[Rfam]
The family of this 52-nucleotide sequence from Pullulanibacillus camelliae is "Streptococcus sRNA SpF59 (ldcC RNA)".
For this family Rfam cites "Control of virulence by small RNAs in Streptococcus pneumoniae" (Mann et al., PLoS Pathog, 2012).
NCBI's taxonomy places the organism under Bacteria, Bacillota, Bacilli, Sporolactobacillaceae, Pullulanibacillus.
The base pairs follow the family's consensus structure, which was predicted with mfold.

RNA sequence: UGACCACUUUCUUCGGGAAGUUGAGGCAACGGUGUGCCGGGUCAAAUGCCGA
Number, nucleotide and partner (000 for none) at each position: 001u044002g043003a042004c041005c040006a021007c020008u019009u018010u017011c016012u000013u000014c000015g000016g011017g010018a009019a008020g007021u006022u000023g000024a000025g000026g000027c000028a000029a000030c000031g000032g000033u000034g000035u000036g000037c000038c000039g000040g005041g004042u003043c002044a001045a000046a000047u000048g000049c000050c000051g000052a000